[Rfam]
Annotation:
Flavo-1 RNA: an 80-nucleotide sequence from Flavobacterium muglaense. It is annotated as a small RNA.
RNA sequence: UUCUAGCCCAGAUAGUAGCGGCAUCCUUUUACUUUUUUUCUUUAAAAAAGUAAAAGAUAUAGCGGAUAGCUGGAAAUAGC
Numbered sequence: 001u002u003c004u005a006g007c008c009c010a011g012a013u014a015g016u017a018g019c020g021g022c023a024u025c026c027u028u029u030u031a032c033u034u035u036u037u038u039u040c041u042u043u044a045a046a047a048a049a050g051u052a053a054a055a056g057a058u059a060u061a062g063c064g065g066a067u068a069g070c071u072g073g074a075a076a077u078a079g080c
Base pairs, nucleotide, nucleotide: 009072010071011070013068014067018063019062023058024057025056029053030052031051032050033049034048035047036046037045038044